Nucleotides: 061
Stems, first nucleotide, its partner, number of pairs: 018045002021042004027036002
Number, partner (000 for none) and nucleotide at each position: 001000u002000g003000c004000u005000a006000c007000u008000u009000c010000c011000c012000a013000u014000u015000a016000a017000u018045g019044g020000u021042g022041u023040a024039g025000g026000c027036c028035c029000c030000c031000a032000c033000c034000c035028g036027g037000a038000g039024c040023u041022a042021c043000u044019u045018u046000a047000c048000c049000a050000u051000c052000u053000u054000c055000c056000g057000a058000a059000u060000u061000u